[Rfam]
RNA sequence: GGUCAUGAGCGCCAGCGCCAAGCCCCGGCUCGCUGGCCGGCAACCCUCCUCGUCGUGGGGUGCCCCGGGUGAAGACCUGACCCUGGUGCCCCGGGCACGGGUAAGGACGAGCC
Numbered sequence: 001g002g003u004c005a006u007g008a009g010c011g012c013c014a015g016c017g018c019c020a021a022g023c024c025c026c027g028g029c030u031c032g033c034u035g036g037c038c039g040g041c042a043a044c045c046c047u048c049c050u051c052g053u054c055g056u057g058g059g060g061u062g063c064c065c066c067g068g069g070u071g072a073a074g075a076c077c078u079g080a081c082c083c084u085g086g087u088g089c090c091c092c093g094g095g096c097a098c099g100g101g102u103a104a105g106g107a108c109g110a111g112c113c
Stems, first nucleotide, its partner, number of pairs: 001077004009038001011037006021030002039064003044060003048055001080102004086098005